[Rfam]
RNA sequence: GGUUUACAUUGGUGCAAAUCCAAUCAUCUAAAUUUAAAAUGAGAAGUAAUUCUCCAUUGGUAGCAAUAUAGUUAUCCAUUAAGCGGACGAAAUUUAAU
Numbered sequence: 001g002g003u004u005u006a007c008a009u010u011g012g013u014g015c016a017a018a019u020c021c022a023a024u025c026a027u028c029u030a031a032a033u034u035u036a037a038a039a040u041g042a043g044a045a046g047u048a049a050u051u052c053u054c055c056a057u058u059g060g061u062a063g064c065a066a067u068a069u070a071g072u073u074a075u076c077c078a079u080u081a082a083g084c085g086g087a088c089g090a091a092a093u094u095u096a097a098u
Stems, first nucleotide, its partner, number of pairs: 009023004053087003056079002059076006